A member of the RNA family "Manganese Mn2+ riboswitch aptamer (yybP-ykoY)" from Klebsiella sp. RIT-PI-d, 181 nucleotides long.

RNA sequence: GCGCCCGUCAUUGGGGAGUAGCCGAUUUCCACCGUUCCCGGAAAUGUACGUGUCAACAUACUCGUUGAAAGACGUGGCGCGUACGGGUCGCAGUACUGCGAUCAGGCGAGACCAUAGGCGCAUCAACCACUGUUUACUGGGGGUGGUGAUGUGUUUAAUGGUUCCCGGUCAGGACGUUAUU
Numbered sequence: 001g002c003g004c005c006c007g008u009c010a011u012u013g014g015g016g017a018g019u020a021g022c023c024g025a026u027u028u029c030c031a032c033c034g035u036u037c038c039c040g041g042a043a044a045u046g047u048a049c050g051u052g053u054c055a056a057c058a059u060a061c062u063c064g065u066u067g068a069a070a071g072a073c074g075u076g077g078c079g080c081g082u083a084c085g086g087g088u089c090g091c092a093g094u095a096c097u098g099c100g101a102u103c104a105g106g107c108g109a110g111a112c113c114a115u116a117g118g119c120g121c122a123u124c125a126a127c128c129a130c131u132g133u134u135u136a137c138u139g140g141g142g143g144u145g146g147u148g149a150u151g152u153g154u155u156u157a158a159u160g161g162u163u164c165c166c167g168g169u170c171a172g173g174a175c176g177u178u179a180u181u
Base pairs, nucleotide, nucleotide: 026044027043028042046084047083048082049081050080051079052078053077054076055075063074064073065072066071085180087178089176090175
The base pairs follow the family's consensus structure. A search with the family's covariance model found it, with a score of 53 bits. Rfam's curators write: This RNA was originally discovered in E. coli during a large scale screen and was named SraF. The family was later found to exist upstream of related families of protein genes in many bacteria, including the the yybP and ykoK genes in B. subtilis. The specific functions of these proteins are unknown, but this structured RNA element may be involved in their genetic regulation as a riboswitch.